Shown here is a 209-nucleotide RNA sequence from Clostridium putrefaciens, a member of the family "raiA RNA". By type it is a riboswitch. The organism belongs to Clostridium, within Bacteria.

RNA sequence: UGAAGCUAGGUUUGUGGUUGAAAGUCGAUGCCAGUCGCAGGCGAAACGAUCCACGUAAGUUAGAUAAAAUGUCUAAUGAUCAUGGUGCGGCUUAGAGGUUAGUCCUGCCAUUUAUUAAAAAUGAGAGAAUUAGUAGUGAGGGGUUAAUUCCUAGUAGCAAAAACUCCAGCAGGCGGGUGUGGGGUCAAAGACCAGGUCAACUAGCUAGA
Numbered sequence: 001u002g003a004a005g006c007u008a009g010g011u012u013u014g015u016g017g018u019u020g021a022a023a024g025u026c027g028a029u030g031c032c033a034g035u036c037g038c039a040g041g042c043g044a045a046a047c048g049a050u051c052c053a054c055g056u057a058a059g060u061u062a063g064a065u066a067a068a069a070u071g072u073c074u075a076a077u078g079a080u081c082a083u084g085g086u087g088c089g090g091c092u093u094a095g096a097g098g099u100u101a102g103u104c105c106u107g108c109c110a111u112u113u114a115u116u117a118a119a120a121a122u123g124a125g126a127g128a129a130u131u132a133g134u135a136g137u138g139a140g141g142g143g144u145u146a147a148u149u150c151c152u153a154g155u156a157g158c159a160a161a162a163a164c165u166c167c168a169g170c171a172g173g174c175g176g177g178u179g180u181g182g183g184g185u186c187a188a189a190g191a192c193c194a195g196g197u198c199a200a201c202u203a204g205c206u207a208g209a
Stems, first nucleotide, its partner, number of pairs: 001209001004206006012200003015194005028180003031041001033092007050085002055080001058077001060075001063072001083187001104173005109123005127166002130163001136158002142151002
Notes: Pairs were carried over by alignment from the consensus structure, which is taken from published work.